[Rfam]
RNA: Small nucleolar RNA snoR8a
RNA sequence: GAGUUAGAAAUGAUUAUAAAAAUAAUUCUUUAUUCUGACUUACUUAAUUUGGGUAUAACAAACUUUUUAUUACAACUAUAGAAUCUGAGUUAC
Numbered sequence: 001g002a003g004u005u006a007g008a009a010a011u012g013a014u015u016a017u018a019a020a021a022a023u024a025a026u027u028c029u030u031u032a033u034u035c036u037g038a039c040u041u042a043c044u045u046a047a048u049u050u051g052g053g054u055a056u057a058a059c060a061a062a063c064u065u066u067u068u069a070u071u072a073c074a075a076c077u078a079u080a081g082a083a084u085c086u087g088a089g090u091u092a093c
Stems, first nucleotide, its partner, number of pairs: 003093002006091002